[Rfam]
RNA sequence: CCAGCCGGCCGGGCGACCGCUGCCGCAAGGGCCGAAAGGCCGCGGGAGAGGAAAGUCCGGGCUUCACGGAGAAACGGUGCCGGGUAACGCCCGGCGAGGGUGACCUCAGGGAAAGUGCCACAGAAAGCAAACCGCCGGCGCGCCGCAUGGCAGGCCGGUAAGGGUGAAAGGGUGGGGUAAGAGCCCACCGCGCGCCUGGCAACAGGCGUGGCAAGGUAAACCCCACCGGAAGCAAAACCGAAUAGGAACGACACGGCGCUCGCGCCAGCCUUCUCCGGGCCCGUCGUUCGGGUAGGUUGCUUGAGGCGCGGCGCGAGCCGCGUCCCAGAUGAAUGGUCGCCGCCCGGCCGCACGGCCGGUGCACAGAACCCGGCUUACAGGCCGGCUGGCUCC
Numbered sequence: 001c002c003a004g005c006c007g008g009c010c011g012g013g014c015g016a017c018c019g020c021u022g023c024c025g026c027a028a029g030g031g032c033c034g035a036a037a038g039g040c041c042g043c044g045g046g047a048g049a050g051g052a053a054a055g056u057c058c059g060g061g062c063u064u065c066a067c068g069g070a071g072a073a074a075c076g077g078u079g080c081c082g083g084g085u086a087a088c089g090c091c092c093g094g095c096g097a098g099g100g101u102g103a104c105c106u107c108a109g110g111g112a113a114a115g116u117g118c119c120a121c122a123g124a125a126a127g128c129a130a131a132c133c134g135c136c137g138g139c140g141c142g143c144c145g146c147a148u149g150g151c152a153g154g155c156c157g158g159u160a161a162g163g164g165u166g167a168a169a170g171g172g173u174g175g176g177g178u179a180a181g182a183g184c185c186c187a188c189c190g191c192g193c194g195c196c197u198g199g200c201a202a203c204a205g206g207c208g209u210g211g212c213a214a215g216g217u218a219a220a221c222c223c224c225a226c227c228g229g230a231a232g233c234a235a236a237a238c239c240g241a242a243u244a245g246g247a248a249c250g251a252c253a254c255g256g257c258g259c260u261c262g263c264g265c266c267a268g269c270c271u272u273c274u275c276c277g278g279g280c281c282c283g284u285c286g287u288u289c290g291g292g293u294a295g296g297u298u299g300c301u302u303g304a305g306g307c308g309c310g311g312c313g314c315g316a317g318c319c320g321c322g323u324c325c326c327a328g329a330u331g332a333a334u335g336g337u338c339g340c341c342g343c344c345c346g347g348c349c350g351c352a353c354g355g356c357c358g359g360u361g362c363a364c365a366g367a368a369c370c371c372g373g374c375u376u377a378c379a380g381g382c383c384g385g386c387u388g389g390c391u392c393c
Base pairs, nucleotide, nucleotide: 001389002388003387004386005385006384007383008382009381010380011378012341013340014339015338016337017336018335020048021047023045024044025043026042053376054375055374057373058372059371060370061369062232063231064230065229071275072274075228076227077226078225079224080094081093082092083091084090095109096107097106098105099104110223111222115221116220117217118216119215132163133162134159135158136157137156138155139154142151143150144149171189172188173187174186175185176184190212191210192209193208194207195206196205197204198203236298237297238296239295246289247288248287249286250285251284268280269279270278271277305324306323307322308321309320310319311318312317
RNA: Bacterial RNase P class A